[Rfam]
RNA sequence: GAUCAAUGAUGAGAUUUUCACGACGGUCUUCCGAAAAAAAAUGUAGCUGUGGAAAUUUCUAACGUGAAGCUGAGAUC
Numbered sequence: 001g002a003u004c005a006a007u008g009a010u011g012a013g014a015u016u017u018u019c020a021c022g023a024c025g026g027u028c029u030u031c032c033g034a035a036a037a038a039a040a041a042u043g044u045a046g047c048u049g050u051g052g053a054a055a056u057u058u059c060u061a062a063c064g065u066g067a068a069g070c071u072g073a074g075a076u077c
Base pairs, nucleotide, nucleotide: 001077002076003075004074